[Rfam]
RNA: DUF805 RNA
RNA sequence: AACAGGUGGAGAACAGGUACCACCAUUAAAAAAAUGUGGCGAAUUCCGAAAAGCCAUACGAGUAGGAAAUUU
Numbered sequence: 001a002a003c004a005g006g007u008g009g010a011g012a013a014c015a016g017g018u019a020c021c022a023c024c025a026u027u028a029a030a031a032a033a034a035u036g037u038g039g040c041g042a043a044u045u046c047c048g049a050a051a052a053g054c055c056a057u058a059c060g061a062g063u064a065g066g067a068a069a070u071u072u
Stems, first nucleotide, its partner, number of pairs: 006023004038055003045066002